This 76-nucleotide RNA sequence from Salvia splendens belongs to the Rfam family "Small nucleolar RNA Z107/R87". Rfam classes the family as a C/D-box small nucleolar RNA. Pairs were carried over by alignment from the consensus structure, which was predicted with RNAfold.
Nucleotides: 076
Stems, first nucleotide, its partner, number of pairs: 002075005
Number, partner (000 for none) and nucleotide at each position: 001000u002075a003074u004073g005072g006071c007000g008000a009000u010000g011000a012000c013000g014000a015000c016000u017000c018000g019000g020000a021000a022000a023000a024000u025000u026000c027000a028000a029000g030000c031000u032000c033000a034000a035000c036000a037000g038000a039000c040000c041000g042000u043000a044000u045000u046000g047000c048000a049000g050000g051000u052000c053000u054000c055000u056000c057000u058000c059000u060000c061000a062000a063000g064000a065000c066000a067000a068000u069000g070000u071006g072005c073004c074003a075002u076000u